[Rfam]
RNA sequence: GCCUCUGAUGAUGAUGCAAGAUUUUAACUUUCGUUCUUCUGAGACAUCCAUGCAGAAAGUUCAUGGAGACCUGAACUGAAGAGGC
Numbered sequence: 001g002c003c004u005c006u007g008a009u010g011a012u013g014a015u016g017c018a019a020g021a022u023u024u025u026a027a028c029u030u031u032c033g034u035u036c037u038u039c040u041g042a043g044a045c046a047u048c049c050a051u052g053c054a055g056a057a058a059g060u061u062c063a064u065g066g067a068g069a070c071c072u073g074a075a076c077u078g079a080a081g082a083g084g085c
Base pairs, nucleotide, nucleotide: 003083004082005081006080
Small nucleolar RNA Z159/U59: an 85-nucleotide sequence from Carnegiea gigantea. It is annotated as a C/D-box small nucleolar RNA. The literature on the family includes a 2003 paper in Nucleic Acids Res by Chen et al., "The high diversity of snoRNAs in plants: identification and comparative study of 120 snoRNA genes from Oryza sativa". Pairs were carried over by alignment from the consensus structure, which was predicted with PFOLD. Rfam links the family to the GO terms nucleolus and RNA processing. Taxonomically the source falls in Carnegiea (Eukaryota, Embryophyta, Mesangiospermae, Cactineae).